[Rfam]
Annotation:
Shown here is a 61-nucleotide sequence from Mycolicibacterium smegmatis, a member of the family "Mycobacterium sRNA Ms_IGR-8". The organism belongs to Mycolicibacterium smegmatis, within Bacteria. Pairs were carried over by alignment from the consensus structure. Rfam classes the family as a small RNA. The family has 3 seed sequences and 26 matches in Rfam 15.1.
RNA sequence: AGUAACUCCUCACGAGUGUGAAACCUCUGCGAGAAAUCUGCCGAUUUUUCGCAGAGGUUUC
Numbered sequence: 001a002g003u004a005a006c007u008c009c010u011c012a013c014g015a016g017u018g019u020g021a022a023a024c025c026u027c028u029g030c031g032a033g034a035a036a037u038c039u040g041c042c043g044a045u046u047u048u049u050c051g052c053a054g055a056g057g058u059u060u061c
Base pairs, nucleotide, nucleotide: 020061021060022059023058024057025056026055027054028053029052030051031050032049033047037043